[Rfam]
RNA sequence: AAACGUUACAACCAAAAGUUCCCGAUAGGGUUCAUAGUUAAAGAUUAUGAAUUUGCCUUGUAACCAAAUAAUAAAAUGGGGGAAGUUAAAUG
Numbered sequence: 001a002a003a004c005g006u007u008a009c010a011a012c013c014a015a016a017a018g019u020u021c022c023c024g025a026u027a028g029g030g031u032u033c034a035u036a037g038u039u040a041a042a043g044a045u046u047a048u049g050a051a052u053u054u055g056c057c058u059u060g061u062a063a064c065c066a067a068a069u070a071a072u073a074a075a076a077u078g079g080g081g082g083a084a085g086u087u088a089a090a091u092g
Stems, first nucleotide, its partner, number of pairs: 019084005027058003031051007064079002
Rfam assigns this 92-nucleotide RNA sequence from Facklamia miroungae to the family "SAM-III riboswitch aptamer (SMK box)". The literature on the family includes a 2007 paper in Proc Natl Acad Sci U S A by Fuchs et al., "S-adenosylmethionine directly inhibits binding of 30S ribosomal subunits to the SMK box translational riboswitch RNA". Lineage of the source: Bacteria > Bacillati > Bacillota > Lactobacillales > Facklamia. It scores 62 bits against the family's covariance model.